[Rfam]
RNA sequence: AAUCAUUUCUACAAAAUUAUUUGUUUAAAUGACCUUGUGGGGAUGCAAAAUAAAAACUUAAAGAUUGUCCAGGUCGUUAUAGAUCAUAAUUUUAUAGCGAUGGUUCCAAGAUCUUACAAUU
Dot-bracket structure: ...(((..((((((..((((((....))))))..))))))..)))...............((((((..(((..((((((((((.......)))))))))))))......))))))......
The family of this 121-nucleotide RNA from Tetrahymena thermophila is "Tetrahymena snoRNA TtnuHACA2".
Gene Ontology terms of the family: RNA processing and nucleolus.
For this family Rfam cites "Experimental identification and analysis of macronuclear non-coding RNAs from the ciliate Tetrahymena thermophila" (Andersen and Nielsen, Nucleic Acids Res, 2012).
The source organism's lineage runs through Eukaryota, Alveolata, Intramacronucleata, Hymenostomatida and Tetrahymena.